[Rfam]
RNA sequence: ACACGCGAAAGGAGGUGGUCCUGGAAGUGAAGAUUCUUCGGACUCGUGAGGUGGUUGCGCGCUAGUCGUCGCGCAACCGAUCCAGCAACGGACCGGAUGCGGUGAGCCCGUGAACCGGGCGGGGUCUCCCGAGGGGAGGCGCCCGACGGCGAGCGAGUACCACGCAACCACCGGAGCCCGCGGGUGUCGUGCCCUCGUCCAGCACGACAGGAGGAACCCUCCAGCCCGCGGGCUUCUCGCU
Numbered sequence: 001a002c003a004c005g006c007g008a009a010a011g012g013a014g015g016u017g018g019u020c021c022u023g024g025a026a027g028u029g030a031a032g033a034u035u036c037u038u039c040g041g042a043c044u045c046g047u048g049a050g051g052u053g054g055u056u057g058c059g060c061g062c063u064a065g066u067c068g069u070c071g072c073g074c075a076a077c078c079g080a081u082c083c084a085g086c087a088a089c090g091g092a093c094c095g096g097a098u099g100c101g102g103u104g105a106g107c108c109c110g111u112g113a114a115c116c117g118g119g120c121g122g123g124g125u126c127u128c129c130c131g132a133g134g135g136g137a138g139g140c141g142c143c144c145g146a147c148g149g150c151g152a153g154c155g156a157g158u159a160c161c162a163c164g165c166a167a168c169c170a171c172c173g174g175a176g177c178c179c180g181c182g183g184g185u186g187u188c189g190u191g192c193c194c195u196c197g198u199c200c201a202g203c204a205c206g207a208c209a210g211g212a213g214g215a216a217c218c219c220u221c222c223a224g225c226c227c228g229c230g231g232g233c234u235u236c237u238c239g240c241u
Base pairs, nucleotide, nucleotide: 015058016057017056018055019054060155061154062153063152065150066149068147069146070145071144073142074141174235175234176233177232178231179230180229181228182227183226184225185224187207188206189205190204191203192202
Description:
The record is a 241-nucleotide RNA sequence from Cellulosimicrobium funkei, which matches "Actinobacteria sRNA Ms_IGR-5" in Rfam. By type it is a small RNA. The pairing is the family consensus, mapped onto this sequence. The organism belongs to Cellulosimicrobium, within Bacteria.